About this RNA: Rfam assigns this 113-nucleotide sequence from Pan troglodytes to the family "Y RNA". Rfam describes the family as follows. Y RNAs are components of the Ro ribonucleoprotein particle (Ro RNP), in association with Ro60 and La proteins. The family's consensus secondary structure is taken from published work. It is annotated as a non-coding RNA gene. A reference for the family is Teunissen et al. (2000), "Conserved features of Y RNAs: a comparison of experimentally derived secondary structures", Nucleic Acids Res.
RNA sequence: GGCUGGUCCGAAGGUGGUGAGUUACCUCAGAUGAUUGUUAACAGUCAGUUACAGAUCCAACUCCUUGUUCUACUCUCUCCCCCUUCCUCACUAUUGUACUUGACUAGUCUUAA
Numbered sequence: 001g002g003c004u005g006g007u008c009c010g011a012a013g014g015u016g017g018u019g020a021g022u023u024a025c026c027u028c029a030g031a032u033g034a035u036u037g038u039u040a041a042c043a044g045u046c047a048g049u050u051a052c053a054g055a056u057c058c059a060a061c062u063c064c065u066u067g068u069u070c071u072a073c074u075c076u077c078u079c080c081c082c083c084u085u086c087c088u089c090a091c092u093a094u095u096g097u098a099c100u101u102g103a104c105u106a107g108u109c110u111u112a113a
Stems, first nucleotide, its partner, number of pairs: 001109008010101002014097002016092006044074001047071002